[Rfam]
RNA sequence: AUUGCAGUGAUGAGGCUAAGCACUUUAGGGGUGUAAUUAGGGCAGUGGACAAGACGAUUUGUUUUGUCUUGCCGUGAUCCCAAUUUAAAACGACUUCUCCUUCCACUGAGCACU
Numbered sequence: 001a002u003u004g005c006a007g008u009g010a011u012g013a014g015g016c017u018a019a020g021c022a023c024u025u026u027a028g029g030g031g032u033g034u035a036a037u038u039a040g041g042g043c044a045g046u047g048g049a050c051a052a053g054a055c056g057a058u059u060u061g062u063u064u065u066g067u068c069u070u071g072c073c074g075u076g077a078u079c080c081c082a083a084u085u086u087a088a089a090a091c092g093a094c095u096u097c098u099c100c101u102u103c104c105a106c107u108g109a110g111c112a113c114u
Stems, first nucleotide, its partner, number of pairs: 001114001003112003

Record summary:
Shown here is a 114-nucleotide sequence from Cynara cardunculus, a member of the family "Small nucleolar RNA Z152/R70/R12/". Its family is annotated with RNA processing and nucleolus in the Gene Ontology. Lineage of the source: Eukaryota > Magnoliopsida > eudicotyledons > campanulids > Cynara cardunculus subsp. cardunculus.